Shown here is a 49-nucleotide RNA from Shimia litoralis, a member of the family "SAM/SAH riboswitch aptamer". The literature on the family includes a 2019 paper in Nucleic Acids Res by Weickhmann et al., "The structure of the SAM/SAH-binding riboswitch". The base pairs follow the family's consensus structure, which is taken from published work.
[Rfam]
RNA sequence: CGUUUGUCACAACGGCUUCCUGGCGUGGCAACAUAUAAACAAUGGAGCA
Number, nucleotide and partner (000 for none) at each position: 001c000002g000003u000004u031005u030006g029007u028008c027009a026010c025011a000012a000013c022014g021015g048016c047017u046018u000019c045020c044021u014022g013023g000024c000025g010026u009027g008028g007029c006030a005031a004032c000033a000034u000035a000036u000037a000038a000039a000040c000041a000042a000043u000044g020045g019046a017047g016048c015049a000